[Rfam]
RNA sequence: GAGCAACUUAGGAUUUUAGGCUCCGCCGUCUCCCCUGCGGGAGGCGGCGCAAACCCCGCAAGGCUGGCGGUCUUGCGUGCGGUCAAAAUCUAUCCGCCGGAG
Number, nucleotide and partner (000 for none) at each position: 001g023002a022003g021004c020005a000006a000007c000008u000009u000010a000011g091012g090013a089014u088015u087016u086017u000018a000019g000020g004021c003022u002023c001024c049025g048026c047027c046028g045029u044030c043031u042032c041033c000034c000035c000036u000037g000038c000039g000040g000041g032042a031043g030044g029045c028046g027047g026048c025049g024050c000051a000052a000053a083054c082055c081056c079057c077058g076059c075060a074061a073062g072063g071064c000065u000066g000067g000068c000069g000070g000071u063072c062073u061074u060075g059076c058077g057078u000079g056080c000081g055082g054083u053084c000085a000086a016087a015088a014089u013090c012091u011092a000093u000094c000095c000096g000097c000098c000099g000100g000101a000102g000
RNA: PreQ1-III (pre queuosine) riboswitch aptamer